[Rfam]
Source information: This 122-nucleotide RNA from Caenimonas koreensis belongs to the Rfam family "Burkholderia RNA 11". Gene Ontology term of the family: protein binding. Rfam classes the family as a small RNA. From the family's description: Co-purified with Hfq, expression confirmed by Northern blot. The family's consensus secondary structure was predicted with RNAfold. NCBI's taxonomy places the organism under Bacteria, Pseudomonadati, Pseudomonadota, Comamonadaceae, Caenimonas koreensis.
RNA sequence: GCAACCUCAAGCUCGCGCAUGGCAAUGUCGUUGUGUUCCGCUCGCUGCUCGGCAUCAGCUGGAUGUGGUUCUUUGGCGCGGUGUUUCUCAGCCAGUUCCCGAGCUUUGCGAAGGAAGUGCUU
Numbered sequence: 001g002c003a004a005c006c007u008c009a010a011g012c013u014c015g016c017g018c019a020u021g022g023c024a025a026u027g028u029c030g031u032u033g034u035g036u037u038c039c040g041c042u043c044g045c046u047g048c049u050c051g052g053c054a055u056c057a058g059c060u061g062g063a064u065g066u067g068g069u070u071c072u073u074u075g076g077c078g079c080g081g082u083g084u085u086u087c088u089c090a091g092c093c094a095g096u097u098c099c100c101g102a103g104c105u106u107u108g109c110g111a112a113g114g115a116a117g118u119g120c121u122u
Stems, first nucleotide, its partner, number of pairs: 010049003014044002017041002021037004051121005059113002063105001067099002071095002076092002078088001080087002